[Rfam]
RNA sequence: UUUGUUAAGAAGAAACAGCCGUUUCUCACCUUACAGCGCAUUAAAUUAGCAGCUAGUGUGGUUAUUUAUCGCAAUGAUUUUGUUUGAUAAUAUAGGGCGGCAGUUUACUGCCGUUUUUUUAUUAUAUA
Numbered sequence: 001u002u003u004g005u006u007a008a009g010a011a012g013a014a015a016c017a018g019c020c021g022u023u024u025c026u027c028a029c030c031u032u033a034c035a036g037c038g039c040a041u042u043a044a045a046u047u048a049g050c051a052g053c054u055a056g057u058g059u060g061g062u063u064a065u066u067u068a069u070c071g072c073a074a075u076g077a078u079u080u081u082g083u084u085u086g087a088u089a090a091u092a093u094a095g096g097g098c099g100g101c102a103g104u105u106u107a108c109u110g111c112c113g114u115u116u117u118u119u120u121a122u123u124a125u126a127u128a
Stems, first nucleotide, its partner, number of pairs: 011026006028062003035054003038050002096115008
Overview
The record is a 128-nucleotide RNA from Clostridium sp. DSM 8431, which matches "Ribosomal protein L20 leader" in Rfam. This family is a putative r-protein leader autoregulatory structure found in B. subtilis and other low-GC Gram-positive bacteria. It is located in the 5' untranslated regions of mRNAs encoding initiation factor 3 followed by ribosomal proteins L35 and L20 (infC-rpmI-rplT). A Rho-independent transcription terminator structure that is probably involved in regulation is included at the 3' end. Gene Ontology term of the family: regulation of gene expression.